[Rfam]
RNA sequence: UCUUAUUGUAUUCAACUGUAUUCACAGCGUGAAAUAGGGGAUUACACUAUUAUUAAAGUGGAAAGUGAAUCAAUUAACAUAAUAGACU
Numbered sequence: 001u002c003u004u005a006u007u008g009u010a011u012u013c014a015a016c017u018g019u020a021u022u023c024a025c026a027g028c029g030u031g032a033a034a035u036a037g038g039g040g041a042u043u044a045c046a047c048u049a050u051u052a053u054u055a056a057a058g059u060g061g062a063a064a065g066u067g068a069a070u071c072a073a074u075u076a077a078c079a080u081a082a083u084a085g086a087c088u
Stems, first nucleotide, its partner, number of pairs: 003085007011077002014075002017072002020070006028060003031053001033051005